[Rfam]
RNA sequence: UUCUUAUCAAGAGCAGGUGGAGGGACUAGCCCAAUGAAGCCCGGCAACCGAUUUUAUGAACCUUCAUAAAGCACGGUGCUAAUUCUUGCAGCACAAGGCUGAUAGAUAAGAG
Numbered sequence: 001u002u003c004u005u006a007u008c009a010a011g012a013g014c015a016g017g018u019g020g021a022g023g024g025a026c027u028a029g030c031c032c033a034a035u036g037a038a039g040c041c042c043g044g045c046a047a048c049c050g051a052u053u054u055u056a057u058g059a060a061c062c063u064u065c066a067u068a069a070a071g072c073a074c075g076g077u078g079c080u081a082a083u084u085c086u087u088g089c090a091g092c093a094c095a096a097g098g099c100u101g102a103u104a105g106a107u108a109a110g111a112g
Stems, first nucleotide, its partner, number of pairs: 001112008013042001016041003022032003026088001028086002043080004048076002050072001052070002084104001089101004
The record is a 112-nucleotide RNA from Pseudoneobacillus rhizosphaerae, which matches "SAM riboswitch aptamer (S box leader)" in Rfam. NCBI's taxonomy places the organism under Bacteria, Bacillota, Bacilli, Bacillaceae, Pseudoneobacillus. A search with the family's covariance model found it, with a score of 79 bits.